[Rfam]
RNA: Alphaproteobacterial ar14
Organism: Flavimaricola marinus
RNA sequence: AGAAUUCGGGCGCUCUCUCCUCCUCCCUGAGCGCUCGUUGACUGGAGCGGCGGCAUCUCUCCUCCUCCCUGAUGCCGCCGCACCAACAUAGAAUUCGGGCGCUCUCUCCUCCUCCCUGAGCGCUCGUUGACU
Numbered sequence: 001a002g003a004a005u006u007c008g009g010g011c012g013c014u015c016u017c018u019c020c021u022c023c024u025c026c027c028u029g030a031g032c033g034c035u036c037g038u039u040g041a042c043u044g045g046a047g048c049g050g051c052g053g054c055a056u057c058u059c060u061c062c063u064c065c066u067c068c069c070u071g072a073u074g075c076c077g078c079c080g081c082a083c084c085a086a087c088a089u090a091g092a093a094u095u096c097g098g099g100c101g102c103u104c105u106c107u108c109c110u111c112c113u114c115c116c117u118g119a120g121c122g123c124u125c126g127u128u129g130a131c132u
Base pairs, nucleotide, nucleotide: 007037008036009035010034011033012032013031014030015029048080049079050078051077052076053075054074055073056072057071096126097125098124099123100122101121102120103119104118